The record is a 416-nucleotide part of an RNA from Batrachochytrium dendrobatidis, which matches "Eukaryotic large subunit ribosomal RNA" in Rfam. The family has 88 seed sequences and 107,465 matches in Rfam 15.1. Taxonomically the source falls in Batrachochytrium dendrobatidis (Eukaryota, Fungi, Chytridiomycota, Rhizophydiales). Rfam's curators put it in the seed alignment.

RNA sequence: UAAUCUCAAAUCAUGCAAGAUUACCCGCUGAACUUAAGCAUAUCAAUAAGCGGUGGAAAAGAAACUAACAAGGAUUCCCCUAGUAACGGCGAGUGAAGCGGGAAUAGCUCAAAUUUGAAAUCUCACAAUAGUGCGAAUUGUAGUUUAGAGAAACCCCAUUUUUUUACUAGACAAUCAAAAAGUUUUUUGGAAUAAAACAUCAUAGAGGGUGACAAUCCCGUUUUUGAUUGCCAAGUAAUAAUGUAUUGGGAUAUCCAAGAGUCGGUUUGUUUGGGAAUGCAGACCAAAAUGGGUGGUAAAUACCAUCUAAAGCUAAAUAUUGGCGAGAGACCGAUAGCGAACAAGUACCGUGAGGGAAAGAUGAAAAGAACUUUGAAAAGAGAGUUAAACAGUACGUGAAAUUGUCAAAAGGGAAA
Numbered sequence: 001u002a003a004u005c006u007c008a009a010a011u012c013a014u015g016c017a018a019g020a021u022u023a024c025c026c027g028c029u030g031a032a033c034u035u036a037a038g039c040a041u042a043u044c045a046a047u048a049a050g051c052g053g054u055g056g057a058a059a060a061g062a063a064a065c066u067a068a069c070a071a072g073g074a075u076u077c078c079c080c081u082a083g084u085a086a087c088g089g090c091g092a093g094u095g096a097a098g099c100g101g102g103a104a105u106a107g108c109u110c111a112a113a114u115u116u117g118a119a120a121u122c123u124c125a126c127a128a129u130a131g132u133g134c135g136a137a138u139u140g141u142a143g144u145u146u147a148g149a150g151a152a153a154c155c156c157c158a159u160u161u162u163u164u165u166a167c168u169a170g171a172c173a174a175u176c177a178a179a180a181a182g183u184u185u186u187u188u189g190g191a192a193u194a195a196a197a198c199a200u201c202a203u204a205g206a207g208g209g210u211g212a213c214a215a216u217c218c219c220g221u222u223u224u225u226g227a228u229u230g231c232c233a234a235g236u237a238a239u240a241a242u243g244u245a246u247u248g249g250g251a252u253a254u255c256c257a258a259g260a261g262u263c264g265g266u267u268u269g270u271u272u273g274g275g276a277a278u279g280c281a282g283a284c285c286a287a288a289a290u291g292g293g294u295g296g297u298a299a300a301u302a303c304c305a306u307c308u309a310a311a312g313c314u315a316a317a318u319a320u321u322g323g324c325g326a327g328a329g330a331c332c333g334a335u336a337g338c339g340a341a342c343a344a345g346u347a348c349c350g351u352g353a354g355g356g357a358a359a360g361a362u363g364a365a366a367a368g369a370a371c372u373u374u375g376a377a378a379a380g381a382g383a384g385u386u387a388a389a390c391a392g393u394a395c396g397u398g399a400a401a402u403u404g405u406c407a408a409a410a411g412g413g414a415a416a
Base pairs, nucleotide, nucleotide: 024055025053026052027051028050029049035042036041065072066071076103077102078101079100086094087093106314107313108312109311112145113144114143115142118139119138121136122135124133125132126131150255151254152252154250155249157248158247160245164238165237166236167235168234172230173229174228175227176226177225178224182198184197185196186195187194201205208218209217264285265284266283267282268281269280270279291308292307293306294305295304348355349354371382372381373380374379